The family of this 74-nucleotide RNA from Salinispora tropica is "ASpks TB sRNA".
NCBI's taxonomy places the organism under Bacteria, Actinomycetota, Micromonosporaceae, Salinispora, Salinispora tropica.
Rfam 15.1 lists 9,052 matches to the family in 683 species.
The sequence is in the family's curated seed alignment.
Nucleotides: 074
Base pairs, nucleotide, nucleotide: 014026015025016024017023034070035069038065039064043060044059045058047056048055049054
Number, partner (000 for none) and nucleotide at each position: 001000c002000u003000u004000g005000a006000c007000u008000g009000a010000u011000c012000c013000g014026a015025g016024c017023c018000a019000u020000a021000c022000c023017g024016g025015u026014u027000g028000c029000u030000c031000c032000g033000g034070c035069g036000c037000c038065c039064g040000c041000c042000c043060c044059u045058g046000c047056c048055c049054g050000u051000a052000g053000g054049u055048g056047g057000c058045c059044a060043g061000a062000a063000u064039c065038g066000c067000c068000u069035c070034g071000g072000c073000u074000u